[Rfam]
Nucleotides: 214
Base pairs, nucleotide, nucleotide: 016059017058018057020055061130062129063128064127066125067124069122070121148208149207150206151205152204153203154202155201156200157199158198159197160196161179162178163177164176165175166174
Number, partner (000 for none) and nucleotide at each position: 001000a002000c003000a004000c005000g006000c007000u008000g009000a010000a011000a012000g013000g014000a015000g016059g017058u018057g019000a020055u021000c022000c023000g024000g025000u026000a027000g028000a029000u030000g031000u032000g033000u034000g035000a036000u037000u038000c039000c040000c041000g042000g043000a044000c045000u046000c047000g048000u049000g050000a051000g052000g053000u054000g055020a056000c057018u058017g059016c060000g061130g062129g063128c064127u065000a066125g067124c068000g069122g070121c071000c072000c073000g074000c075000c076000a077000c078000c079000a080000c081000a082000c083000c084000c085000c086000g087000u088000a089000g090000u091000g092000g093000g094000u095000g096000c097000c098000g099000g100000a101000c102000c103000g104000g105000c106000g107000u108000g109000c110000g111000c112000g113000c114000g115000a116000c117000g118000c119000a120000c121070g122069c123000a124067g125066c126000c127064g128063g129062c130061c131000a132000g133000u134000u135000c136000c137000a138000c139000g140000c141000a142000g143000u144000c145000a146000c147000c148208c149207g150206a151205c152204c153203c154202g155201c156200g157199a158198g159197u160196c161179g162178c163177c164176g165175g166174u167000a168000a169000g170000u171000c172000c173000g174166g175165c176164c177163g178162g179161c180000c181000c182000u183000c184000c185000c186000c187000g188000g189000a190000g191000g192000a193000c194000c195000a196160g197159a198158c199157u200156c201155g202154c203153g204152g205151g206150u207149c208148g209000c210000c211000u212000g213000c214000g